This 110-nucleotide RNA sequence from Papaver somniferum belongs to the Rfam family "Small nucleolar RNA snoR100". The match comes from Rfam's covariance-model search (68 bits). A reference for the family is Marker et al. (2002), "Experimental RNomics: identification of 140 candidates for small non-messenger RNAs in the plant Arabidopsis thaliana", Curr Biol.
RNA sequence: UAAUGAGGGAAGCAUGGUACUGUGUACAGAAAUCAAUGAGUUGGUGCUAAUGUCUGCUUGCUCUGAUGCACUCGCUCUGAUUUUGCGGGCCUGGAAAUGUACCUACAGUU
Numbered sequence: 001u002a003a004u005g006a007g008g009g010a011a012g013c014a015u016g017g018u019a020c021u022g023u024g025u026a027c028a029g030a031a032a033u034c035a036a037u038g039a040g041u042u043g044g045u046g047c048u049a050a051u052g053u054c055u056g057c058u059u060g061c062u063c064u065g066a067u068g069c070a071c072u073c074g075c076u077c078u079g080a081u082u083u084u085g086c087g088g089g090c091c092u093g094g095a096a097a098u099g100u101a102c103c104u105a106c107a108g109u110u
Stems, first nucleotide, its partner, number of pairs: 012025004043091003052081003056075002